[Rfam]
Nucleotides: 072
Base pairs, nucleotide, nucleotide: 001072002071003070006068
Number, partner (000 for none) and nucleotide at each position: 001072c002071c003070u004000u005000g006068u007000g008000a009000u010000g011000a012000u013000a014000a015000a016000u017000a018000a019000a020000a021000a022000u023000g024000a025000c026000u027000u028000u029000c030000g031000u032000u033000c034000u035000u036000c037000u038000g039000a040000a041000c042000c043000u044000a045000a046000u047000g048000a049000a050000g051000u052000c053000a054000u055000a056000u057000u058000u059000a060000u061000g062000a063000u064000c065000u066000g067000a068006a069000a070003a071002g072001g
About this RNA:
Rfam assigns this 72-nucleotide RNA sequence from Thamnophis sirtalis to the family "Small nucleolar RNA SNORD59". Rfam classes the family as a C/D-box small nucleolar RNA. Rfam links the family to the GO terms RNA processing and nucleolus. NCBI's taxonomy places the organism under Eukaryota, Bilateria, Sauria, Serpentes, Thamnophis. The literature on the family includes a 2002 paper in Mol Cell Biol by Galardi et al., "Purified box C/D snoRNPs are able to reproduce site-specific 2'-O-methylation of target RNA in vitro". The family has 24 seed sequences and 1,355 matches in Rfam 15.1.